[Rfam]
RNA sequence: CAAGAAACAAAACUCCGAACUUGAAUUUCUAAGGCGAAAGCUAUGAAUUCAAGCCUGAAUGUUUCACGACAUUCACAGGGUACUGCUGGAAACGGCAUUGCCUUCCGUUAUUAGAAGGAGAUAUUUUAUCAAAGCA
Number, nucleotide and partner (000 for none) at each position: 001c000002a000003a000004g129005a000006a127007a000008c000009a000010a000011a122012a000013c120014u119015c118016c117017g000018a000019a000020c053021u052022u051023g050024a049025a048026u000027u047028u046029c045030u000031a000032a000033g042034g041035c040036g000037a000038a000039a000040g035041c034042u033043a000044u000045g029046a028047a027048u025049u024050c023051a022052a021053g020054c000055c000056u075057g074058a073059a072060u071061g070062u069063u000064u000065c000066a000067c000068g000069a062070c061071a060072u059073u058074c057075a056076c000077a000078g103079g102080g101081u100082a099083c000084u097085g096086c095087u094088g093089g000090a000091a000092a000093c088094g087095g086096c085097a084098u000099u082100g081101c080102c079103u078104u113105c000106c000107g000108u000109u000110a000111u000112u000113a104114g000115a000116a000117g016118g015119a014120g013121a000122u011123a000124u000125u000126u000127u006128a000129u004130c000131a000132a000133a000134g000135c000136a000
The family of this 136-nucleotide RNA from Parasporobacterium paucivorans is "Molybdenum/Tungsten riboswitch aptamer (Moco RNA motif)". The literature on the family includes a 2007 paper in Nucleic Acids Res by Weinberg et al., "Identification of 22 candidate structured RNAs in bacteria using the CMfinder comparative genomics pipeline".